[Rfam]
RNA: Small nucleolar RNA SNORD42
Organism: Jaculus jaculus
RNA sequence: ACACAAGUGAUGGAAAUUUCACUAUUUGGAAAAGAAUGGCAACAGCAACAAAGGAACCACUGAUGUGC
Numbered sequence: 001a002c003a004c005a006a007g008u009g010a011u012g013g014a015a016a017u018u019u020c021a022c023u024a025u026u027u028g029g030a031a032a033a034g035a036a037u038g039g040c041a042a043c044a045g046c047a048a049c050a051a052a053g054g055a056a057c058c059a060c061u062g063a064u065g066u067g068c
Stems, first nucleotide, its partner, number of pairs: 002067004